[Rfam]
RNA: transfer-messenger RNA
Organism: Parafrankia sp. EAN1pec
RNA sequence: GGGGGUGACCGGCUUCGACUCCGGACGUCGAGGCAGGGGAAGCGGGCCGAGGAUGAGCGGUUAUCUCGUUAACGAUCCGUUCAGAACAACAGCUGCCACUAAGACGCAGCCUGCUAGCUCCACUUUCGCCCUCGCGGCCUGAGUAGAGACCAACUAGCCGUCAGCCUGGGAGUUCCUCCGGCCCAGGAUCUGGCGUCGACAGGAGGAUCACCGUCCCACCCGGUCGCGGGGUAGGUCGGGAAAUCUAACAGCGACUGAGCCUGCGCCGGCUUGCCUGCGGGACCGGCGGGGCUGAGAAAAAACAAGCAGGCUGCGCCCGGAGAAGCCCUGUGUCGGGGCCGGAGGACGCGGGUUCGAUUCCCGCCACCUCCACCA
Numbered sequence: 001g002g003g004g005g006u007g008a009c010c011g012g013c014u015u016c017g018a019c020u021c022c023g024g025a026c027g028u029c030g031a032g033g034c035a036g037g038g039g040a041a042g043c044g045g046g047c048c049g050a051g052g053a054u055g056a057g058c059g060g061u062u063a064u065c066u067c068g069u070u071a072a073c074g075a076u077c078c079g080u081u082c083a084g085a086a087c088a089a090c091a092g093c094u095g096c097c098a099c100u101a102a103g104a105c106g107c108a109g110c111c112u113g114c115u116a117g118c119u120c121c122a123c124u125u126u127c128g129c130c131c132u133c134g135c136g137g138c139c140u141g142a143g144u145a146g147a148g149a150c151c152a153a154c155u156a157g158c159c160g161u162c163a164g165c166c167u168g169g170g171a172g173u174u175c176c177u178c179c180g181g182c183c184c185a186g187g188a189u190c191u192g193g194c195g196u197c198g199a200c201a202g203g204a205g206g207a208u209c210a211c212c213g214u215c216c217c218a219c220c221c222g223g224u225c226g227c228g229g230g231g232u233a234g235g236u237c238g239g240g241a242a243a244u245c246u247a248a249c250a251g252c253g254a255c256u257g258a259g260c261c262u263g264c265g266c267c268g269g270c271u272u273g274c275c276u277g278c279g280g281g282a283c284c285g286g287c288g289g290g291g292c293u294g295a296g297a298a299a300a301a302a303c304a305a306g307c308a309g310g311c312u313g314c315g316c317c318c319g320g321a322g323a324a325g326c327c328c329u330g331u332g333u334c335g336g337g338g339c340c341g342g343a344g345g346a347c348g349c350g351g352g353u354u355c356g357a358u359u360c361c362c363g364c365c366a367c368c369u370c371c372a373c374c375a
Base pairs, nucleotide, nucleotide: 001371002370003369004368005367006366007365019344020343021342022341023340024339026337028335030334031333033331034330035329036328037327038326043319044318045317046316047315048068049067050066051065052064054083055082056081057080058079059078122144123143124142125141128138129137130136159195160194161193162192163191164190166186167185168184169183176206177205179203211239212238213237215235216234218232219231222256223255224254225253226252227251258293259292260291261290262289268284269283273311274310275309276308281303348364349363350362351361352360